Shown here is a 114-nucleotide RNA sequence from Nostocoides jenkinsii, a member of the family "ALIL pseudoknot".
Rfam classes the family as a cis-regulatory element.
RNA sequence: GGCUUUCUUCGCGGCGGAGCUCGACCGCCCCUUGAAGUGAUCGUCGCGUUCGUCGACGAGAACCGUGCUGAGUUCGGAGUCGAGUUCAUCUGCAGGCACCUGCAGGUGGCUCCG
Numbered sequence: 001g002g003c004u005u006u007c008u009u010c011g012c013g014g015c016g017g018a019g020c021u022c023g024a025c026c027g028c029c030c031c032u033u034g035a036a037g038u039g040a041u042c043g044u045c046g047c048g049u050u051c052g053u054c055g056a057c058g059a060g061a062a063c064c065g066u067g068c069u070g071a072g073u074u075c076g077g078a079g080u081c082g083a084g085u086u087c088a089u090c091u092g093c094a095g096g097c098a099c100c101u102g103c104a105g106g107u108g109g110c111u112c113c114g
Stems, first nucleotide, its partner, number of pairs: 013029005075114005086109002089106007
Background: NCBI's taxonomy places the organism under Bacteria, Bacillati, Actinomycetota, Micrococcales, Nostocoides jenkinsii.